[Rfam]
RNA sequence: UUUUCUGUAUAAGCGCCAGAACUAAACCCAUGUGGUGGGAUUUAGUUGACGAGGUGGAGGUUAUCGAAAUGUUCGGCGGGAGCCUCCCAGCUUACAUGUGCGGGCUGCAACUCUUUUUACCAAAACAGUUUGGCGACAAACUGGACAGAAUAAAGAGAGAAGCACAUA
Numbered sequence: 001u002u003u004u005c006u007g008u009a010u011a012a013g014c015g016c017c018a019g020a021a022c023u024a025a026a027c028c029c030a031u032g033u034g035g036u037g038g039g040a041u042u043u044a045g046u047u048g049a050c051g052a053g054g055u056g057g058a059g060g061u062u063a064u065c066g067a068a069a070u071g072u073u074c075g076g077c078g079g080g081a082g083c084c085u086c087c088c089a090g091c092u093u094a095c096a097u098g099u100g101c102g103g104g105c106u107g108c109a110a111c112u113c114u115u116u117u118u119a120c121c122a123a124a125a126c127a128g129u130u131u132g133g134c135g136a137c138a139a140a141c142u143g144g145a146c147a148g149a150a151u152a153a154a155g156a157g158a159g160a161a162g163c164a165c166a167u168a
Stems, first nucleotide, its partner, number of pairs: 020047007029038001056087005064076004088107006112158007126143007
glmS glucosamine-6-phosphate activated ribozyme aptamer: a 168-nucleotide sequence from Bacillus sp. FJAT-27916. Pairs were carried over by alignment from the consensus structure, which is taken from published work. About the family: This entry contains a glucosamine-6-phosphate activated ribozyme that is found in the mRNA for GlmS. GlmS is an enzyme that uses fructose-6-phosphate and glutamine to generate glucosamine-6-phosphate. The ribozyme catalyses self cleavage of the glmS mRNA that is thought to regulate GlmS activity.